[Rfam]
RNA sequence: ACAACUGAUGAUUGAAGUAUAGUCUGACUUGGUAUUGCCAAGACUUACCCUUUUGGCUCUGACCAGGGCAUGAUCUUCUCCACCCACCACCUCCUGUU
Numbered sequence: 001a002c003a004a005c006u007g008a009u010g011a012u013u014g015a016a017g018u019a020u021a022g023u024c025u026g027a028c029u030u031g032g033u034a035u036u037g038c039c040a041a042g043a044c045u046u047a048c049c050c051u052u053u054u055g056g057c058u059c060u061g062a063c064c065a066g067g068g069c070a071u072g073a074u075c076u077u078c079u080c081c082a083c084c085c086a087c088c089a090c091c092u093c094c095u096g097u098u
Base pairs, nucleotide, nucleotide: 002096003095037057038056039055040054
Dot-bracket structure: .((.................................((((.............)))).....................................))..
The family of this 98-nucleotide RNA sequence from Sphenodon punctatus is "Z30 small nucleolar RNA". The family has 20 seed sequences and 802 matches in Rfam 15.1. The family's consensus secondary structure was predicted with PFOLD. Gene Ontology terms of the family: RNA processing and nucleolus. It scores 54 bits against the family's covariance model.